[Rfam]
RNA sequence: AUCACUUCUCAGCCUUUUGGCUAGGAUUGAGUGCAGCAUCUGUUCUUAUCAGUUUAAUAUCUGAUAUGUUCUCUGUCCAAGGACAAUAUAUUAAAUGGGUUUUUGGAGCAGGGAGAUGGAGUAGGAGUUUGCUCUGUCCACCCUGUGCAUCAACCUGGUAUUGCAGUACCUCUAGGAAUGGUGCACCCCCA
Numbered sequence: 001a002u003c004a005c006u007u008c009u010c011a012g013c014c015u016u017u018u019g020g021c022u023a024g025g026a027u028u029g030a031g032u033g034c035a036g037c038a039u040c041u042g043u044u045c046u047u048a049u050c051a052g053u054u055u056a057a058u059a060u061c062u063g064a065u066a067u068g069u070u071c072u073c074u075g076u077c078c079a080a081g082g083a084c085a086a087u088a089u090a091u092u093a094a095a096u097g098g099g100u101u102u103u104u105g106g107a108g109c110a111g112g113g114a115g116a117u118g119g120a121g122u123a124g125g126a127g128u129u130u131g132c133u134c135u136g137u138c139c140a141c142c143c144u145g146u147g148c149a150u151c152a153a154c155c156u157g158g159u160a161u162u163g164c165a166g167u168a169c170c171u172c173u174a175g176g177a178a179u180g181g182u183g184c185a186c187c188c189c190c191a
Stems, first nucleotide, its partner, number of pairs: 007026003011022004047066006068084005112144002115141001118138002124135004147184006154176005
About this RNA
This 191-nucleotide RNA from Neomonachus schauinslandi belongs to the Rfam family "U2 spliceosomal RNA". U2 is a small nuclear RNA (snRNA) component of the spliceosome (involved in pre-mRNA splicing). Complementary binding between U2 snRNA (in an area lying towards the 5' end but 3' to hairpin I) and the branchpoint sequence (BPS) of the intron results the bulging out of an unpaired adenosine, on the BPS, which initiates a nucleophilic attack at the intronic 5' splice site, thus starting the first of two transesterification reactions that mediate splicing. The base pairs follow the family's consensus structure, which is taken from published work. Taxonomically the source falls in Neomonachus (Eukaryota, Metazoa, Bilateria, Pinnipedia). It scores 143 bits against the family's covariance model. The family's RNA type in Rfam is spliceosomal small nuclear RNA.